[Rfam]
RNA sequence: GAUAACGUUCUUAUAGGGCAAGGUCGGCUAAUCCCCUUAUGAAAGGGGGUGAUGCUUAUGAGCAUGUAUGAGAGCUUCAUGGUACUAUUUGGUUUCGGUACCUUCUUGAUUGCAUUGCUCGCUUUGAUCGUAUCACUGAUCAAUAGAAAAUAGACCUCCCUAUUAACCAACCAAGUGAGUAGGAGAGGUCUAUCACAAUCGAUAGCCGAUCCCUCUAGGGGAACCGCUUAUCCAUAACCCGUAGUGACAGCUACGGGU
Numbered sequence: 001g002a003u004a005a006c007g008u009u010c011u012u013a014u015a016g017g018g019c020a021a022g023g024u025c026g027g028c029u030a031a032u033c034c035c036c037u038u039a040u041g042a043a044a045g046g047g048g049g050u051g052a053u054g055c056u057u058a059u060g061a062g063c064a065u066g067u068a069u070g071a072g073a074g075c076u077u078c079a080u081g082g083u084a085c086u087a088u089u090u091g092g093u094u095u096c097g098g099u100a101c102c103u104u105c106u107u108g109a110u111u112g113c114a115u116u117g118c119u120c121g122c123u124u125u126g127a128u129c130g131u132a133u134c135a136c137u138g139a140u141c142a143a144u145a146g147a148a149a150a151u152a153g154a155c156c157u158c159c160c161u162a163u164u165a166a167c168c169a170a171c172c173a174a175g176u177g178a179g180u181a182g183g184a185g186a187g188g189u190c191u192a193u194c195a196c197a198a199u200c201g202a203u204a205g206c207c208g209a210u211c212c213c214u215c216u217a218g219g220g221g222a223a224c225c226g227c228u229u230a231u232c233c234a235u236a237a238c239c240c241g242u243a244g245u246g247a248c249a250g251c252u253a254c255g256g257g258u
Stems, first nucleotide, its partner, number of pairs: 001232005008223001009209002011166002013163006022155001024153001029052001031050001033048005060122001062120001065117002073088001098113003176197002210222004237258009